[Rfam]
RNA sequence: UGCAACCAAGACAAUGAAAGCCCUACCUCUCUUUCAUCCUUGCGGCUCCGAAGACCGCGCCAGUGUGAAUCAGUAUUACAACAAUGUC
Number, nucleotide and partner (000 for none) at each position: 001u000002g000003c000004a000005a000006c000007c000008a000009a000010g000011a000012c000013a000014a000015u000016g000017a000018a000019a000020g000021c000022c000023c000024u000025a000026c000027c000028u000029c000030u000031c000032u000033u000034u068035c067036a066037u000038c000039c063040u062041u059042g058043c057044g056045g055046c000047u053048c000049c000050g000051a000052a000053g047054a000055c045056c044057g043058c042059g041060c000061c000062a040063g039064u000065g000066u036067g035068a034069a000070u000071c000072a000073g000074u000075a000076u000077u000078a000079c000080a000081a000082c000083a000084a000085u000086g000087u000088c000